[Rfam]
RNA sequence: UCUCCCGCUUCACCUCCCUGAGCGGGUGCCUCACGCCUGGUGAGGCAUUUUCGCCCCCGACUACGUCCCCUGGUCGGGGGCUUUUGUUU
Numbered sequence: 001u002c003u004c005c006c007g008c009u010u011c012a013c014c015u016c017c018c019u020g021a022g023c024g025g026g027u028g029c030c031u032c033a034c035g036c037c038u039g040g041u042g043a044g045g046c047a048u049u050u051u052c053g054c055c056c057c058c059g060a061c062u063a064c065g066u067c068c069c070c071u072g073g074u075c076g077g078g079g080g081c082u083u084u085u086g087u088u089u
Stems, first nucleotide, its partner, number of pairs: 004026006028046007053081011

The family of this 89-nucleotide sequence from Thauera aminoaromatica is "Burkholderia RNA 7 (anti-hemB)". The family has 26 seed sequences and 479 matches in Rfam 15.1. Rfam links the family to the GO terms bacterial biofilm matrix and protein binding. This RNA motif was identified by computational search in b-proteobacteria Burkholderia. Co-purified with Hfq, expression confirmed by Northern blot. On this family, see Sass et al., Sci Rep 2017: "Identification of small RNAs abundant in Burkholderia cenocepacia biofilms reveal putative regulators with a potential role in carbon and iron metabolism". Rfam classes the family as a small RNA.